[Rfam]
RNA sequence: GCACUGCAGCAAACCAUUUCCUGCUCCAUUACAGCUGGAUAUGGGUUAAAAAUGUGCAAUAGUAACUCAUAGUGUAUCCAGACAGGUCUCCUCAUCUGUUGGAACUUGUCCCUACGAACUAUGAAACAUGU
Number, nucleotide and partner (000 for none) at each position: 001g057002c056003a055004c054005u000006g000007c000008a000009g000010c000011a000012a047013a046014c045015c044016a042017u041018u000019u039020c038021c000022u000023g000024c000025u000026c000027c000028a000029u000030u000031a000032c000033a000034g000035c000036u000037g000038g020039a019040u000041a017042u016043g000044g015045g014046u013047u012048a000049a000050a000051a000052a000053u000054g004055u003056g002057c001058a000059a000060u000061a000062g000063u000064a000065a000066c000067u124068c123069a122070u121071a120072g119073u000074g000075u000076a000077u000078c000079c000080a000081g110082a109083c108084a107085g106086g105087u104088c000089u000090c000091c000092u102093c101094a100095u000096c000097u000098g000099u000100u094101g093102g092103a000104a087105c086106u085107u084108g083109u082110c081111c000112c000113u000114a000115c000116g000117a000118a000119c072120u071121a070122u069123g068124a067125a000126a000127c000128a000129u000130g000131u000

Rfam assigns this 131-nucleotide RNA sequence from Anabarilius grahami to the family "Small nucleolar RNA SNORA55". ACA55 is a member of the H/ACA class of snoRNA that guide the sites of modification of uridines to pseudouridines.